[Rfam]
RNA sequence: GCGGGCUGAGUAUUACAUCAGGUACUGGUAGUUCUAGUGACCAGUGCCUGUGUAAUGCUGGUCCUGC
Numbered sequence: 001g002c003g004g005g006c007u008g009a010g011u012a013u014u015a016c017a018u019c020a021g022g023u024a025c026u027g028g029u030a031g032u033u034c035u036a037g038u039g040a041c042c043a044g045u046g047c048c049u050g051u052g053u054a055a056u057g058c059u060g061g062u063c064c065u066g067c
Base pairs, nucleotide, nucleotide: 001067002066003065004064005063009059010058011057012056015053016052017051018050021048022047023046024045025044026043027042028041029040
Source information: The family of this 67-nucleotide sequence from Hyalella azteca is "mir-12 microRNA precursor family". The match comes from Rfam's covariance-model search (62 bits). For this family Rfam cites "Functional and evolutionary insights from the genomes of three parasitoid Nasonia species" (Werren et al., Science, 2010). The base pairs follow the family's consensus structure, which was predicted with RNAalifold.